The record is a 195-nucleotide sequence from Onychostoma macrolepis, which matches "U2 spliceosomal RNA" in Rfam. A search with the family's covariance model found it, with a score of 106 bits.
RNA sequence: AUGGUUUUGGUUAAAUAAAUAAAAAAAAAAUAAUAAUAAUAAUCUGUUCUUAUCAGUUUGAUAUUUGAUACGUCCCCUACCCGGGGACUGCAUAUUAAAUUGAUUUUUGGAUCACGGAGCUGGAGCCGGGGCUUGCUCCGUCCACUCCACGCAUCGGCCUGGUAUUACAGUGUCUCCAGGAAUGGUGCUUCCCCU
Number, nucleotide and partner (000 for none) at each position: 001a034002u033003g000004g031005u030006u029007u028008u027009g000010g000011u000012u000013a000014a000015a000016u000017a000018a000019a000020u000021a000022a000023a000024a000025a000026a000027a008028a007029a006030a005031u004032a000033a002034u001035a000036a000037u000038a000039a000040u000041a000042a000043u000044c000045u000046g000047u000048u000049c000050u000051u070052a069053u068054c067055a066056g065057u000058u000059u000060g000061a000062u000063a000064u000065u056066u055067g054068a053069u052070a051071c000072g088073u087074c086075c085076c084077c083078u000079a000080c000081c000082c000083g077084g076085g075086g074087a073088c072089u000090g000091c000092a000093u000094a000095u000096u000097a000098a000099a000100u000101u000102g000103a000104u000105u000106u000107u000108u000109g000110g000111a000112u000113c000114a000115c000116g148117g147118a146119g145120c000121u000122g142123g141124a000125g000126c000127c000128g139129g138130g137131g136132c000133u000134u000135g000136c131137u130138c129139c128140g000141u123142c122143c000144a000145c119146u118147c117148c116149a000150c000151g188152c187153a186154u185155c184156g183157g000158c180159c179160u178161g177162g176163u000164a000165u000166u000167a000168c000169a000170g000171u000172g000173u000174c000175u000176c162177c161178a160179g159180g158181a000182a000183u156184g155185g154186u153187g152188c151189u000190u000191c000192c000193c000194c000195u000
NCBI's taxonomy places the organism under Eukaryota, Chordata, Teleostei, Ostariophysi, Onychostoma. It is annotated as a spliceosomal small nuclear RNA.